[Rfam]
RNA sequence: AUUGAUAUAAUAUACAAGUUGCAAUUUAUCAGCAAUCCUCAGGACUUUUAACCUUUGCCUGAGCAUAUUACAGGCGGUAUUCAGCCGCUAAAGGAGAAAAAAAUUG
Numbered sequence: 001a002u003u004g005a006u007a008u009a010a011u012a013u014a015c016a017a018g019u020u021g022c023a024a025u026u027u028a029u030c031a032g033c034a035a036u037c038c039u040c041a042g043g044a045c046u047u048u049u050a051a052c053c054u055u056u057g058c059c060u061g062a063g064c065a066u067a068u069u070a071c072a073g074g075c076g077g078u079a080u081u082c083a084g085c086c087g088c089u090a091a092a093g094g095a096g097a098a099a100a101a102a103a104u105u106g
Stems, first nucleotide, its partner, number of pairs: 018036005038063006052094004073089005